The record is a 151-nucleotide sequence from Aphanomyces stellatus, which matches "U12 minor spliceosomal RNA" in Rfam. Pairs were carried over by alignment from the consensus structure. Rfam links the family to the GO terms pre-mRNA branch point binding, mRNA branch site recognition and U12 snRNP. Taxonomically the source falls in Aphanomyces (Eukaryota, Stramenopiles, Oomycota, Saprolegniales).
[Rfam]
RNA sequence: GUGGCUUAAACUCAAUGAGUAAGGAAACUAACUCUCUACCUGACAAGUAGGGACCCCAAAGGCAUUUGUCUUUGGCAAUUUAUGUGGGACAUGGAAUGGUUUGUGCACCUCUCCCCUACUUUGGGAGGGAGUGCAUUAGCUGGUCCCCCUC
Numbered sequence: 001g002u003g004g005c006u007u008a009a010a011c012u013c014a015a016u017g018a019g020u021a022a023g024g025a026a027a028c029u030a031a032c033u034c035u036c037u038a039c040c041u042g043a044c045a046a047g048u049a050g051g052g053a054c055c056c057c058a059a060a061g062g063c064a065u066u067u068g069u070c071u072u073u074g075g076c077a078a079u080u081u082a083u084g085u086g087g088g089a090c091a092u093g094g095a096a097u098g099g100u101u102u103g104u105g106c107a108c109c110u111c112u113c114c115c116c117u118a119c120u121u122u123g124g125g126a127g128g129g130a131g132u133g134c135a136u137u138a139g140c141u142g143g144u145c146c147c148c149c150u151c
Stems, first nucleotide, its partner, number of pairs: 005023004033053007057074005086151003093146003097142003102135002105132002108129001111127005